[Rfam]
RNA sequence: GGCCUCCCUCUGUGGGGCGAUCGAUCGCGGGGCCCCAGAUUGAUAGCCCUGCAGAGGGAGGCC
Numbered sequence: 001g002g003c004c005u006c007c008c009u010c011u012g013u014g015g016g017g018c019g020a021u022c023g024a025u026c027g028c029g030g031g032g033c034c035c036c037a038g039a040u041u042g043a044u045a046g047c048c049c050u051g052c053a054g055a056g057g058g059a060g061g062c063c
Stems, first nucleotide, its partner, number of pairs: 001063018020044007029036002

Shown here is a 63-nucleotide RNA from Myotis brandtii, a member of the family "mir-9242 microRNA precursor family". Its family is annotated with RISC complex and miRNA-mediated post-transcriptional gene silencing in the Gene Ontology. It scores 72 bits against the family's covariance model. Lineage of the source: Eukaryota > Vertebrata > Amniota > Theria > Myotis. The family has 2 seed sequences and 940 matches in Rfam 15.1.